Nucleotides: 105
Base pairs, nucleotide, nucleotide: 029098030097031096032095033094034093035092040086041085042084044082045081046080047079048077049076050075051074
Number, partner (000 for none) and nucleotide at each position: 001000u002000g003000g004000c005000u006000g007000u008000a009000g010000c011000c012000a013000a014000a015000u016000u017000a018000a019000a020000u021000u022000a023000c024000a025000u026000a027000g028000a029098u030097g031096a032095a033094g034093c035092u036000a037000u038000c039000u040086g041085g042084c043000c044082g045081g046080u047079u048077g049076u050075u051074g052000u053000g054000a055000g056000a057000a058000c059000c060000c061000u062000u063000u064000g065000g066000g067000u068000c069000u070000c071000u072000g073000u074051c075050a076049a077048u078000a079047g080046a081045u082044c083000u084042g085041c086040u087000u088000a089000c090000c091000g092035a093034g094033c095032u096031u097030c098029a099000c100000a101000c102000a103000u104000u105000c

Rfam assigns this 105-nucleotide RNA from Lupinus angustifolius to the family "Small nucleolar RNA snoR109". Rfam links the family to the GO terms RNA processing and nucleolus. By type it is an H/ACA-box small nucleolar RNA. A reference for the family is Marker et al. (2002), "Experimental RNomics: identification of 140 candidates for small non-messenger RNAs in the plant Arabidopsis thaliana", Curr Biol. Rfam 15.1 lists 680 matches to the family in 220 species. It scores 79 bits against the family's covariance model.